[Rfam]
RNA: Glutamine riboswitch aptamer (glnA leader)
Organism: Crocosphaera watsonii
RNA sequence: AUCGUUCAUCUCUACAUUGCCAUAAACAAAGACAAUUAAGAGACGGAAGUAGGCUGUGAAUAAGUUGCCGAAGGAACGCUUU
Numbered sequence: 001a002u003c004g005u006u007c008a009u010c011u012c013u014a015c016a017u018u019g020c021c022a023u024a025a026a027c028a029a030a031g032a033c034a035a036u037u038a039a040g041a042g043a044c045g046g047a048a049g050u051a052g053g054c055u056g057u058g059a060a061u062a063a064g065u066u067g068c069c070g071a072a073g074g075a076a077c078g079c080u081u082u
Base pairs, nucleotide, nucleotide: 003078004077005076006075007074009043010042011041012040013039046079052069053068054067